[Rfam]
RNA sequence: CUUUACUGAUGCGGGAGCUUGGUACGACAGGCUGAGAGGGGUUUGACUGGAGCCCGACCGUUACACCUGAUCCGGAUAAUGCCGGCGGAGGGAUCUGUGUGACCUCAGC
Numbered sequence: 001c002u003u004u005a006c007u008g009a010u011g012c013g014g015g016a017g018c019u020u021g022g023u024a025c026g027a028c029a030g031g032c033u034g035a036g037a038g039g040g041g042u043u044u045g046a047c048u049g050g051a052g053c054c055c056g057a058c059c060g061u062u063a064c065a066c067c068u069g070a071u072c073c074g075g076a077u078a079a080u081g082c083c084g085g086c087g088g089a090g091g092g093a094u095c096u097g098u099g100u101g102a103c104c105u106c107a108g109c
Base pairs, nucleotide, nucleotide: 005098006097008095009094011061012060013059014058017032018031019030020029021028039055040054041053042052043051066091067090068089072085073084074083075082
RNA: TPP riboswitch aptamer (THI element)
Organism: Desulforhopalus sp. IMCC35007